A member of the RNA family "Plastid-ycf3 group II-D1 intron" from Rheum wittrockii, 44 nucleotides long.
For this family Rfam cites "Retrograde signaling in plants: A critical review focusing on the GUN pathway and beyond" (Richter et al., Plant Commun, 2023).
Its family is annotated with Group II intron splicing in the Gene Ontology.
Rfam's curators write: Plastid rpl16 is a non-coding RNA (ncRNA) recognised in plastids.
The sequence is in the family's curated seed alignment.
The source organism's lineage runs through Eukaryota, Magnoliopsida, Polygonaceae, Rumiceae and Rheum.
RNA sequence: UCCUUCUGUCGUGUAUCCCCGAUUAAUGCAGCCUCAGAUGCUUC
Numbered sequence: 001u002c003c004u005u006c007u008g009u010c011g012u013g014u015a016u017c018c019c020c021g022a023u024u025a026a027u028g029c030a031g032c033c034u035c036a037g038a039u040g041c042u043u044c
Stems, first nucleotide, its partner, number of pairs: 008023004030042003